[Rfam]
RNA sequence: UUGGUUUAAAUCAUUGUUGAUCUAAACUUUGAAAAUUGAACUCACACAAAGUGGUGGGACAUGAAUUGAUUUCAUAUAA
Numbered sequence: 001u002u003g004g005u006u007u008a009a010a011u012c013a014u015u016g017u018u019g020a021u022c023u024a025a026a027c028u029u030u031g032a033a034a035a036u037u038g039a040a041c042u043c044a045c046a047c048a049a050a051g052u053g054g055u056g057g058g059a060c061a062u063g064a065a066u067u068g069a070u071u072u073c074a075u076a077u078a079a
Stems, first nucleotide, its partner, number of pairs: 001079003006074001008072006015065001017063001022057003026052006
Dot-bracket structure: (((..(.((((((.(.(....(((.((((((...............))))))..))).....).).)))))).)..)))
Description: MIR5269 microRNA precursor family: a 79-nucleotide sequence from Medicago truncatula. The match comes from Rfam's covariance-model search (62 bits). Rfam links the family to the GO terms miRNA-mediated post-transcriptional gene silencing and RISC complex.